[Rfam]
Record summary: Shown here is an 80-nucleotide RNA sequence, a member of the family "freshwater-2 RNA". Rfam's curators put it in the seed alignment. The family's RNA type in Rfam is cis-regulatory element. The base pairs follow the family's consensus structure, which is taken from published work.
RNA sequence: AUUCACAUGGGGUGAAUUUUAUGCGGAAAUCCAACCGCGUACGGCCUAGAACGCCGUUGUUUCUUAAGGAGAAAAAAAUG
Numbered sequence: 001a002u003u004c005a006c007a008u009g010g011g012g013u014g015a016a017u018u019u020u021a022u023g024c025g026g027a028a029a030u031c032c033a034a035c036c037g038c039g040u041a042c043g044g045c046c047u048a049g050a051a052c053g054c055c056g057u058u059g060u061u062u063c064u065u066a067a068g069g070a071g072a073a074a075a076a077a078a079u080g
Base pairs, nucleotide, nucleotide: 001017002016003015004014005013006012020041021040022039023038024037025036026035042056043055044054045053